[Rfam]
RNA sequence: GUGCCAUGAUGUCAGUUGUCAACACAUCAUUCUGAAGAAGGAUUGUGUGGAGCACUUCUGGGACUGAGCACC
Numbered sequence: 001g002u003g004c005c006a007u008g009a010u011g012u013c014a015g016u017u018g019u020c021a022a023c024a025c026a027u028c029a030u031u032c033u034g035a036a037g038a039a040g041g042a043u044u045g046u047g048u049g050g051a052g053c054a055c056u057u058c059u060g061g062g063a064c065u066g067a068g069c070a071c072c
Base pairs, nucleotide, nucleotide: 001071002070003069004068

Rfam assigns this 72-nucleotide sequence from Polioptila caerulea to the family "Small nucleolar RNA SNORD63". The organism belongs to Polioptila, within Eukaryota. Rfam's curators write: snoRNA U63 is found in both humans and mice. It is annotated as a C/D-box small nucleolar RNA. The base pairs follow the family's consensus structure, which was predicted with PFOLD. The match comes from Rfam's covariance-model search (55 bits).